RNA sequence: CCGCGCCCCGCAGGAGAGAGGGGCGCCAUGCGCUCCCGCCGAAGGCGCAAACUCCCAUAAUCGCUCAGGCAGCAGUCACUGCGGAUUUCCA
Numbered sequence: 001c002c003g004c005g006c007c008c009c010g011c012a013g014g015a016g017a018g019a020g021g022g023g024c025g026c027c028a029u030g031c032g033c034u035c036c037c038g039c040c041g042a043a044g045g046c047g048c049a050a051a052c053u054c055c056c057a058u059a060a061u062c063g064c065u066c067a068g069g070c071a072g073c074a075g076u077c078a079c080u081g082c083g084g085a086u087u088u089c090c091a
Stems, first nucleotide, its partner, number of pairs: 008084006020036004038070003041066002045064003051058001
The family of this 91-nucleotide RNA from Pseudomonas sp. FeS53a is "Glycine riboswitch aptamer".